A member of the RNA family "Tombusvirus 3' UTR region IV" from Tombusvirus bulgariaense, 94 nucleotides long. A search with the family's covariance model found it, with a score of 85 bits.
RNA sequence: GUAUCUCGCACGGUUACACCCCAUCCUUCGGGAGGGCUUUAGGGGUGUGCUGGAAGCACCACCGGACAGCCGGAACAUUGCCGAAAGGCAGCCC
Numbered sequence: 001g002u003a004u005c006u007c008g009c010a011c012g013g014u015u016a017c018a019c020c021c022c023a024u025c026c027u028u029c030g031g032g033a034g035g036g037c038u039u040u041a042g043g044g045g046u047g048u049g050c051u052g053g054a055a056g057c058a059c060c061a062c063c064g065g066a067c068a069g070c071c072g073g074a075a076c077a078u079u080g081c082c083g084a085a086a087g088g089c090a091g092c093c094c
Base pairs, nucleotide, nucleotide: 011052012051013050014049016048018046019045020044021043022042024033025032026031034094035093036092062073063072064071065070078091079090080089081088082087
Tomato bushy stunt virus is the prototype member of the Tombusviridae family. In addition to viral proteins p33 and the RNA-dependent RNA polymerase p92, and unknown host factors, RNA signals within the UTRs are necessary for genome replication. This element contains a pseudoknot. Rfam classes the family as a cis-regulatory element. The literature on the family includes a 2003 paper in Virology by Fabian et al., "3'-Terminal RNA secondary structures are important for accumulation of tomato bushy stunt virus DI RNAs".